[Rfam]
RNA: Selenocysteine transfer RNA
Organism: Chiloscyllium punctatum
RNA sequence: GCCUGGAUGGUUCCUAGUGGUCUGGGAUGCAGGCUUCAAACCUGUAGCUGUCUAGCAACAGAAUGGUUCAAUUCCACCUUCCAGGC
Numbered sequence: 001g002c003c004u005g006g007a008u009g010g011u012u013c014c015u016a017g018u019g020g021u022c023u024g025g026g027a028u029g030c031a032g033g034c035u036u037c038a039a040a041c042c043u044g045u046a047g048c049u050g051u052c053u054a055g056c057a058a059c060a061g062a063a064u065g066g067u068u069c070a071a072u073u074c075c076a077c078c079u080u081c082c083a084g085g086c
Base pairs, nucleotide, nucleotide: 001086002085003084004083005082006081007080009078012027013026014025015024016023017022028046029045030044031043032042033041048061049060050059051058064076065075066074
Dot-bracket structure: (((((((.(..((((((....))))))((((((.......)))))).((((......))))..(((.......))).).)))))))